Small nucleolar RNA SNORA65: a 128-nucleotide RNA from Pterocles burchelli. Rfam classes the family as an H/ACA-box small nucleolar RNA. NCBI's taxonomy places the organism under Eukaryota, Deuterostomia, Gnathostomata, Sauropsida, Pterocles. U65 belongs to the H/ACA class of snoRNAs which are thought to guide the sites of modification of uridines to pseudouridines. The literature on the family includes a 2001 paper in EMBO J by Huttenhofer et al., "RNomics: an experimental approach that identifies 201 candidates for novel, small, non-messenger RNAs in mouse". The family's consensus secondary structure was predicted with RNAalifold.

Nucleotides: 128
Stems, first nucleotide, its partner, number of pairs: 005048005018035002021032001025030001064121001066119001068118001070113001073110002078106003082102002086098003
Number, partner (000 for none) and nucleotide at each position: 001000c002000c003000c004000g005048c006047c007046a008045c009044u010000a011000u012000a013000c014000c015000u016000g017000u018035c019034c020000u021032g022000a023000a024000c025030c026000c027000c028000g029000u030025g031000g032021c033000u034019g035018g036000u037000a038000u039000a040000u041000u042000c043000c044009a045008g046007u047006g048005g049000u050000g051000a052000g053000c054000u055000g056000a057000g058000a059000g060000g061000a062000a063000c064121c065000g066119c067000c068118a069000g070113u071000c072000a073110g074109g075000a076000a077000g078106c079105a080104g081000u082102c083101c084000u085000c086098c087097u088096c089000u090000g091000c092000u093000c094000g095000u096088g097087g098086g099000g100000a101083g102082g103000c104080c105079u106078g107000u108000g109074c110073c111000g112000a113070a114000a115000g116000g117000c118068u119066g120000g121064g122000a123000a124000c125000a126000a127000g128000c

About this RNA:
Clan: SNORA65 clan.